Source information: Shown here is a 233-nucleotide part of an RNA from Spirochaeta africana, a member of the family "Bacterial large subunit ribosomal RNA".
RNA sequence: GAGUUACUGUGCGAAGCAAGGUUAAGGGAUAGGAGUCCCGGAGCCGGAGGGAAACCGAGUCUGAACAGGGCGAAUGAGUUUCGUGCAGUAGACCCGAAGCCGGGUGAUCUAUUUAUGGCCAGGUUGAAGCUUUGGUAAAACAAAGUGGAGGACCGAACCCUAGUCUGUUAAAAAAGGCAGGGAUGAGCUGUGAAUAGGAGUGAAAGGCUAAACAAACCCGGAGAUAGCUGGUU
Numbered sequence: 001g002a003g004u005u006a007c008u009g010u011g012c013g014a015a016g017c018a019a020g021g022u023u024a025a026g027g028g029a030u031a032g033g034a035g036u037c038c039c040g041g042a043g044c045c046g047g048a049g050g051g052a053a054a055c056c057g058a059g060u061c062u063g064a065a066c067a068g069g070g071c072g073a074a075u076g077a078g079u080u081u082c083g084u085g086c087a088g089u090a091g092a093c094c095c096g097a098a099g100c101c102g103g104g105u106g107a108u109c110u111a112u113u114u115a116u117g118g119c120c121a122g123g124u125u126g127a128a129g130c131u132u133u134g135g136u137a138a139a140a141c142a143a144a145g146u147g148g149a150g151g152a153c154c155g156a157a158c159c160c161u162a163g164u165c166u167g168u169u170a171a172a173a174a175a176g177g178c179a180g181g182g183a184u185g186a187g188c189u190g191u192g193a194a195u196a197g198g199a200g201u202g203a204a205a206g207g208c209u210a211a212a213c214a215a216a217c218c219c220g221g222a223g224a225u226a227g228c229u230g231g232u233u
Stems, first nucleotide, its partner, number of pairs: 005090013020045004026039003049056002059071004093231002096228001100221006109197011120185001122154004129146006158182003163178004199209003
Dot-bracket structure: ....(((((((((((((..((((..(((........)))..))))...((....))..((((.....))))......)))))))))))))..((.(...((((((...((((((((((((.((((...((((((......))))))....))))...(((..((((........)))).)))..).))))))))))).(((.....)))......))))))......).))..
NCBI's taxonomy places the organism under Bacteria, Pseudomonadati, Spirochaetia, Spirochaetaceae, Spirochaeta africana. Rfam links the family to the GO terms structural constituent of ribosome and ribosome.